[Rfam]
A member of the RNA family "mir-146 microRNA precursor family" from Fukomys damarensis, 86 nucleotides long. Lineage of the source: Eukaryota > Metazoa > Eutheria > Boreoeutheria > Fukomys. Gene Ontology terms of the family: miRNA-mediated post-transcriptional gene silencing and RISC complex. For this family Rfam cites "Identification of tissue-specific microRNAs from mouse" (Lagos-Quintana et al., Curr Biol, 2002).
Nucleotides: 086
Base pairs, nucleotide, nucleotide: 008077011075012074013073018069019068020067021066022065023064024063025062034055035054036053
Number, partner (000 for none) and nucleotide at each position: 001000c002000u003000g004000g005000c006000c007000a008077c009000c010000u011075g012074g013073c014000u015000c016000u017000g018069g019068g020067a021066a022065c023064u024063g025062a026000g027000u028000u029000c030000c031000g032000u033000a034055g035054g036053c037000u038000g039000u040000g041000g042000g043000c044000u045000g046000c047000a048000a049000c050000a051000g052000u053036g054035c055034c056000c057000u058000g059000g060000g061000c062025u063024c064023a065022g066021u067020u068019c069018c070000a071000g072000u073013g074012c075011c076000a077008g078000c079000u080000g081000u082000g083000c084000u085000g086000c